The record is a 209-nucleotide RNA from Allobosea caraganae, which matches "Bradyrhizobiaceae sRNA BjrC174" in Rfam. The literature on the family includes a 2012 paper in RNA Biol by Madhugiri et al., "Small RNAs of the Bradyrhizobium/Rhodopseudomonas lineage and their analysis". By type it is a small RNA. Taxonomically the source falls in Allobosea (Bacteria, Pseudomonadota, Alphaproteobacteria, Hyphomicrobiales).
RNA sequence: AUCACGCCUUCGUCAGGCCUGCCGCAAUUUCGCCCCGAACGCGUCAAGCCAUGGCCAAGUUACGCGGGUCAACUCCCGAUCGUUGCCUCGACGGCCCGGUUCCGCGGAGUUCCGGAUACGUCAGCCCCCCAGCCCCCCGGGGCUUCGAUGGGACCGGGCCAUUCGGUUCGAGGCUACCUCAACGGCUGGCGGUUUCCGCUGGCCGUUUU
Numbered sequence: 001a002u003c004a005c006g007c008c009u010u011c012g013u014c015a016g017g018c019c020u021g022c023c024g025c026a027a028u029u030u031c032g033c034c035c036c037g038a039a040c041g042c043g044u045c046a047a048g049c050c051a052u053g054g055c056c057a058a059g060u061u062a063c064g065c066g067g068g069u070c071a072a073c074u075c076c077c078g079a080u081c082g083u084u085g086c087c088u089c090g091a092c093g094g095c096c097c098g099g100u101u102c103c104g105c106g107g108a109g110u111u112c113c114g115g116a117u118a119c120g121u122c123a124g125c126c127c128c129c130c131a132g133c134c135c136c137c138c139g140g141g142g143c144u145u146c147g148a149u150g151g152g153a154c155c156g157g158g159c160c161a162u163u164c165g166g167u168u169c170g171a172g173g174c175u176a177c178c179u180c181a182a183c184g185g186c187u188g189g190c191g192g193u194u195u196c197c198g199c200u201g202g203c204c205g206u207u208u209u
Stems, first nucleotide, its partner, number of pairs: 037178001038052001041049002085174007093160011107145009124133002183205010